[Rfam]
RNA sequence: GGAUGAGUGAGACAUCCCGUCCGCGGGACCGCGCGGACGUCGCCCCGCCGGUGCUUCCCCGGUACCGGCGCGGCUGUGCCGUCGUGCACACCACCGGGGCCUCUGGCCCCGGGAGUCCUCACGGACCGGA
Dot-bracket structure: ...((((.((.......((((((((......))))))))..(((.((.((((((.......)))))).)).))).((((......))))....((((((((...))))))))...))))))(......).
RNA: Streptomyces RNA 5676